The family of this 73-nucleotide sequence from Pseudooceanicola nanhaiensis is "Singlet oxygen resistance RNA X". It scores 67 bits against the family's covariance model. Rfam describes the family as follows. SorX (RSs2461)like SorY is a singlet oxygen induced sRNA that counteracts oxidative stress by targeting mRNA for a transporter in Rhodobacter. It also has an impact on resistance against organic hydroperoxides. The source organism's lineage runs through Bacteria, Pseudomonadati, Pseudomonadota, Paracoccaceae and Pseudooceanicola. A reference for the family is Berghoff et al. (2009), "Photooxidative stress-induced and abundant small RNAs in Rhodobacter sphaeroides", Mol Microbiol. Rfam 15.1 lists 528 matches to the family in 356 species.

[Rfam]
RNA sequence: UCCCGCCGCAUGACCGGGUCAUGUCAUGCAUACCUCCCUGUUGGACUGGGCCCGGGUUUCCCGGGCCCUUUUU
Numbered sequence: 001u002c003c004c005g006c007c008g009c010a011u012g013a014c015c016g017g018g019u020c021a022u023g024u025c026a027u028g029c030a031u032a033c034c035u036c037c038c039u040g041u042u043g044g045a046c047u048g049g050g051c052c053c054g055g056g057u058u059u060c061c062c063g064g065g066c067c068c069u070u071u072u073u
Stems, first nucleotide, its partner, number of pairs: 008029007049067008